[Rfam]
RNA sequence: GAUGAAAGCUAAAGACUGGAAGCAAUGAGAAUUUAAAAUCAUGUCUUGAAGAGAACAGUAGGAU
Numbered sequence: 001g002a003u004g005a006a007a008g009c010u011a012a013a014g015a016c017u018g019g020a021a022g023c024a025a026u027g028a029g030a031a032u033u034u035a036a037a038a039u040c041a042u043g044u045c046u047u048g049a050a051g052a053g054a055a056c057a058g059u060a061g062g063a064u
Base pairs, nucleotide, nucleotide: 008059009058010057016051017050020047021046022045025042026041027040028039

A member of the RNA family "mir-9412 microRNA precursor family" from Nematostella vectensis, 64 nucleotides long.
Taxonomically the source falls in Nematostella (Eukaryota, Opisthokonta, Metazoa, Eumetazoa).